[Rfam]
RNA: Hepatitis C virus J7880 RNA
Nucleotides: 123
Stems, first nucleotide, its partner, number of pairs: 006120001012114007022065002025062001028057002032053001035050001037048002068103004074097001076095002078092002
Number, partner (000 for none) and nucleotide at each position: 001000g002000u003000u004000a005000a006120g007000g008000c009000a010000a011000a012114g013113g014112c015111g016110u017109c018108c019000a020000c021000a022065g023064u024000g025062a026000a027000g028057g029056c030000c031000a032053g033000a034000u035050u036000g037048c038047u039000a040000c041000c042000c043000a044000u045000a046000g047038a048037g049000g050035a051000a052000g053032c054000u055000u056029g057028u058000g059000g060000c061000c062025u063000g064023a065022c066000g067000c068103c069102c070101c071100c072000a073000c074097a075000c076095u077094c078092a079091g080000c081000c082000a083000g084000a085000u086000c087000c088000a089000a090000a091079u092078u093000u094077g095076g096000c097074u098000a099000u100071g101070g102069g103068g104000c105000a106000a107000a108018g109017g110016a111015c112014g113013u114012c115000c116000g117000g118000a119000g120006c121000c122000u123000a